[Rfam]
RNA sequence: GGCCGACACGCGGCAGUUCUUCACUGGCAAGCUUUACGUUCCUGUUGUACCUGCUAAAGCUGCCAGCUGAAGAACUGUCGAGGUCUGC
Numbered sequence: 001g002g003c004c005g006a007c008a009c010g011c012g013g014c015a016g017u018u019c020u021u022c023a024c025u026g027g028c029a030a031g032c033u034u035u036a037c038g039u040u041c042c043u044g045u046u047g048u049a050c051c052u053g054c055u056a057a058a059g060c061u062g063c064c065a066g067c068u069g070a071a072g073a074a075c076u077g078u079c080g081a082g083g084u085c086u087g088c
Base pairs, nucleotide, nucleotide: 005085006084007083011080012079017074018073019072020071021070022069026064027063028062030061031060032059033058034057035056036055
RNA: mir-22 microRNA precursor family
Organism: Merluccius polli